Rfam assigns this 81-nucleotide sequence from Odobenus rosmarus to the family "Small nucleolar RNA SNORD115". The family's RNA type in Rfam is C/D-box small nucleolar RNA. Gene Ontology terms of the family: RNA processing and nucleolus. NCBI's taxonomy places the organism under Eukaryota, Vertebrata, Eutheria, Odobenidae, Odobenus rosmarus.
RNA sequence: GCAUCAAUUUUGAAACCUCAUAUUGUAUUGAAAAGAUUUGUUUACCUAAAAGUCAUGUUCAAUGGCAUUACACUGAGGUUC
Dot-bracket structure: (.((((.(...............................................................).))..)).)

Overview
It scores 58 bits against the family's covariance model.